[Rfam]
RNA sequence: AUACACAAGUAUUGACUGCCGAAGACAGUAGGUGCCGUAAGGCGUAAGGUUACAGCCGCCUACCGAGGAACGUACAAUUUUGUAUUAAACGACGAAUUUGUAGAGCCCCUCUGUCUUGCACAGUGGGGCUUUUCCUUGCAGUCU
Numbered sequence: 001a002u003a004c005a006c007a008a009g010u011a012u013u014g015a016c017u018g019c020c021g022a023a024g025a026c027a028g029u030a031g032g033u034g035c036c037g038u039a040a041g042g043c044g045u046a047a048g049g050u051u052a053c054a055g056c057c058g059c060c061u062a063c064c065g066a067g068g069a070a071c072g073u074a075c076a077a078u079u080u081u082g083u084a085u086u087a088a089a090c091g092a093c094g095a096a097u098u099u100g101u102a103g104a105g106c107c108c109c110u111c112u113g114u115c116u117u118g119c120a121c122a123g124u125g126g127g128g129c130u131u132u133u134c135c136u137u138g139c140a141g142u143c144u
Stems, first nucleotide, its partner, number of pairs: 028063006034043003105129005111123004
RNA: Ribosomal protein L10 leader
Organism: Clostridium sp. AM33-3